[Rfam]
Rfam assigns this 125-nucleotide RNA from Galemys pyrenaicus to the family "Small nucleolar RNA SNORA63".
RNA sequence: AUGCAGGAUCUACUUACAAUGUAGCUGUGAAGUGCUGCAUUGCCUUUGCCCCCUGCUCAAAGCAAAAUUGUUGCCAUUCUAGCCCUGUUGCUGCUGUAGUGCCAGGGAUGCAUGGUCUCAUACAU
Number, nucleotide and partner (000 for none) at each position: 001a000002u000003g056004c055005a054006g053007g052008a000009u000010c000011u000012a000013c000014u000015u000016a000017c042018a041019a040020u039021g038022u037023a036024g035025c034026u000027g000028u000029g000030a000031a000032g000033u000034g025035c024036u023037g022038c021039a020040u019041u018042g017043c000044c000045u000046u000047u000048g000049c000050c000051c000052c007053c006054u005055g004056c003057u000058c000059a000060a000061a000062g000063c000064a000065a000066a000067a000068u000069u000070g000071u000072u000073g000074c000075c000076a000077u000078u000079c000080u000081a000082g000083c000084c106085c105086u104087g103088u000089u101090g100091c099092u000093g000094c000095u000096g000097u000098a000099g091100u090101g089102c000103c087104a086105g085106g084107g000108a000109u000110g000111c000112a000113u000114g000115g000116u000117c000118u000119c000120a000121u000122a000123c000124a000125u000

The base pairs follow the family's consensus structure, which was predicted with PFOLD. About the family: E3 belongs to the H/ACA class of snoRNAs and is involved in the processing of eukaryotic pre-rRNA and has regions of complementarity to 18S rRNA. E3 is encoded in introns in the gene for protein synthesis initiation factor 4AII. A search with the family's covariance model found it, with a score of 90 bits. The family's RNA type in Rfam is H/ACA-box small nucleolar RNA.